[Rfam]
RNA sequence: CCCAUUGCGAGAUGGGAUCCUAAGGAAGUCGGCGGCAAAUCUUCGUUCUGAGGGAAACGAACCGCAAAUGAGGCUAGGGGCAGUUGGUUGAGCUUGCGUUACAAAGCAAAGUCCUUGCUACCGAAGGUUGCCCAGAGUAACUGCGGCAGGUAGAUGGAGAGAAAGACACUGCU
Numbered sequence: 001c002c003c004a005u006u007g008c009g010a011g012a013u014g015g016g017a018u019c020c021u022a023a024g025g026a027a028g029u030c031g032g033c034g035g036c037a038a039a040u041c042u043u044c045g046u047u048c049u050g051a052g053g054g055a056a057a058c059g060a061a062c063c064g065c066a067a068a069u070g071a072g073g074c075u076a077g078g079g080g081c082a083g084u085u086g087g088u089u090g091a092g093c094u095u096g097c098g099u100u101a102c103a104a105a106g107c108a109a110a111g112u113c114c115u116u117g118c119u120a121c122c123g124a125a126g127g128u129u130g131c132c133c134a135g136a137g138u139a140a141c142u143g144c145g146g147c148a149g150g151u152a153g154a155u156g157g158a159g160a161g162a163a164a165g166a167c168a169c170u171g172c173u
Base pairs, nucleotide, nucleotide: 001016002015003014004013005012006011028173030171031170032169036165040160041159042158043157044156045155047150048149049148050147062146063145064144065143066142073138074137075136078133079132080131081130082129083128086114087113089111092107093106094105095104